[Rfam]
RNA sequence: CUUAGGAGCCAAUGAUGUUCUUAUUCAUAAUGUCUGAACCUAUCUGAAGCAUCCCUGUGAUGCCACCUCUGUUGCUGAGGCUCCUUUGGCA
Numbered sequence: 001c002u003u004a005g006g007a008g009c010c011a012a013u014g015a016u017g018u019u020c021u022u023a024u025u026c027a028u029a030a031u032g033u034c035u036g037a038a039c040c041u042a043u044c045u046g047a048a049g050c051a052u053c054c055c056u057g058u059g060a061u062g063c064c065a066c067c068u069c070u071g072u073u074g075c076u077g078a079g080g081c082u083c084c085u086u087u088g089g090c091a
Stems, first nucleotide, its partner, number of pairs: 004085007
This 91-nucleotide RNA sequence from Octodon degus belongs to the Rfam family "Small nucleolar RNA SNORD91 family".
On this family, see Huttenhofer et al., EMBO J 2001: "RNomics: an experimental approach that identifies 201 candidates for novel, small, non-messenger RNAs in mouse".
By type it is a C/D-box small nucleolar RNA.
Taxonomically the source falls in Octodon (Eukaryota, Teleostomi, Glires, Hystricomorpha).